[Rfam]
RNA sequence: UGGCUGUAGCUACACAAAUUCAUUUGAUUGGGAAGUUUACUGGCCGGUUGUUCUCUCCUGUUGACAAAUCUGCUUACCGAACUUCACACACUU
Numbered sequence: 001u002g003g004c005u006g007u008a009g010c011u012a013c014a015c016a017a018a019u020u021c022a023u024u025u026g027a028u029u030g031g032g033a034a035g036u037u038u039a040c041u042g043g044c045c046g047g048u049u050g051u052u053c054u055c056u057c058c059u060g061u062u063g064a065c066a067a068a069u070c071u072g073c074u075u076a077c078c079g080a081a082c083u084u085c086a087c088a089c090a091c092u093u
Stems, first nucleotide, its partner, number of pairs: 030087001032085006042074003046070004050065003
Shown here is a 93-nucleotide sequence from Ipomoea nil, a member of the family "Small nucleolar RNA snoR109". Rfam classes the family as an H/ACA-box small nucleolar RNA. Rfam links the family to the GO terms RNA processing and nucleolus. The base pairs follow the family's consensus structure, which was predicted with WAR.